[Rfam]
RNA sequence: GCCAUGGGGUCGCGAUCACCCCACGAGGCGUCAUGCUGAAGAAUCGCGUCCAGUAAAACCGAUCAACGGAGGGACGCGUCAUG
Numbered sequence: 001g002c003c004a005u006g007g008g009g010u011c012g013c014g015a016u017c018a019c020c021c022c023a024c025g026a027g028g029c030g031u032c033a034u035g036c037u038g039a040a041g042a043a044u045c046g047c048g049u050c051c052a053g054u055a056a057a058a059c060c061g062a063u064c065a066a067c068g069g070a071g072g073g074a075c076g077c078g079u080c081a082u083g
Stems, first nucleotide, its partner, number of pairs: 005023006046077006
RNA: chrB-a RNA
Organism: Rhizobium leguminosarum